[Rfam]
RNA sequence: CACUGUUUUGAUCACCUGCAGAUUAGUCAUUACAGAAGAAAGAUCAGCGAAGUCUCUUGGACCUGAUUGACAGGAGCUACUGACUUCACCUUCUCUAGCCCAACUCUCUGAAAUAAUGAAGUGCACAAGUUCCAUUGUUGUUCUUCAGCUCUGCAUCCUU
Numbered sequence: 001c002a003c004u005g006u007u008u009u010g011a012u013c014a015c016c017u018g019c020a021g022a023u024u025a026g027u028c029a030u031u032a033c034a035g036a037a038g039a040a041a042g043a044u045c046a047g048c049g050a051a052g053u054c055u056c057u058u059g060g061a062c063c064u065g066a067u068u069g070a071c072a073g074g075a076g077c078u079a080c081u082g083a084c085u086u087c088a089c090c091u092u093c094u095c096u097a098g099c100c101c102a103a104c105u106c107u108c109u110g111a112a113a114u115a116a117u118g119a120a121g122u123g124c125a126c127a128a129g130u131u132c133c134a135u136u137g138u139u140g141u142u143c144u145u146c147a148g149c150u151c152u153g154c155a156u157c158c159u160u
Base pairs, nucleotide, nucleotide: 009069010068011067012066013065014064016110018108020107021106022105026099027098029096032094034092035091041086042085044083045082046081047080051078052077053076056074057073058072059071112160113159116156117155118154121135122134123133125131140149141148142147
RNA: Interferon gamma 5' UTR regulatory element